[Rfam]
RNA sequence: ACGGAUCUUCGGGGCAGGGUGAAAAUCCCGACCGGCGGUGAAGGUUCCAGAUGGAACUUCAGCCCGCGACUCGCACAUCGCUUUAUACGGUAUGCGACUGACUUGGUGCGAUUCCAAGGCCGACGGUAUAGUCCGGAUGGGAGAAGGUCAAA
Numbered sequence: 001a002c003g004g005a006u007c008u009u010c011g012g013g014g015c016a017g018g019g020u021g022a023a024a025a026u027c028c029c030g031a032c033c034g035g036c037g038g039u040g041a042a043g044g045u046u047c048c049a050g051a052u053g054g055a056a057c058u059u060c061a062g063c064c065c066g067c068g069a070c071u072c073g074c075a076c077a078u079c080g081c082u083u084u085a086u087a088c089g090g091u092a093u094g095c096g097a098c099u100g101a102c103u104u105g106g107u108g109c110g111a112u113u114c115c116a117a118g119g120c121c122g123a124c125g126g127u128a129u130a131g132u133c134c135g136g137a138u139g140g141g142a143g144a145a146g147g148u149c150a151a152a
Stems, first nucleotide, its partner, number of pairs: 004149007017029003031132002033122002035067004062120002071097005102118005124135003

FMN riboswitch aptamer (RFN element): a 152-nucleotide RNA from Paenibacillus nasutitermitis. Taxonomically the source falls in Paenibacillus (Bacteria, Bacillati, Bacilli, Paenibacillaceae). The match comes from Rfam's covariance-model search (115 bits).